The family of this 147-nucleotide part of an RNA from Strigomonas oncopelti is "Eukaryotic small subunit ribosomal RNA". On this family, see Yusupov et al., Science 2001: "Crystal structure of the ribosome at 5.5 A resolution". NCBI's taxonomy places the organism under Eukaryota, Discoba, Kinetoplastea, Strigomonadinae, Strigomonas. Pairs were carried over by alignment from the consensus structure, which is taken from published work.
[Rfam]
RNA sequence: GACACCCAUGAAUUGGGGACUUUCUGCGGGGGGCUUGCCGGGACGGUCGCUACUAAAUCUACGUGCACUUUCCAUCUGCUUCGGGCAACAAGGGAAUGCCCUCAGCACAUCUGUUCUACUUCACGCGAAAGCUUUGAGGUUACAGUC
Numbered sequence: 001g002a003c004a005c006c007c008a009u010g011a012a013u014u015g016g017g018g019a020c021u022u023u024c025u026g027c028g029g030g031g032g033g034c035u036u037g038c039c040g041g042g043a044c045g046g047u048c049g050c051u052a053c054u055a056a057a058u059c060u061a062c063g064u065g066c067a068c069u070u071u072c073c074a075u076c077u078g079c080u081u082c083g084g085g086c087a088a089c090a091a092g093g094g095a096a097u098g099c100c101c102u103c104a105g106c107a108c109a110u111c112u113g114u115u116c117u118a119c120u121u122c123a124c125g126c127g128a129a130a131g132c133u134u135u136g137a138g139g140u141u142a143c144a145g146u147c
Stems, first nucleotide, its partner, number of pairs: 001147003004140003008110003013105006020098001023096001125132002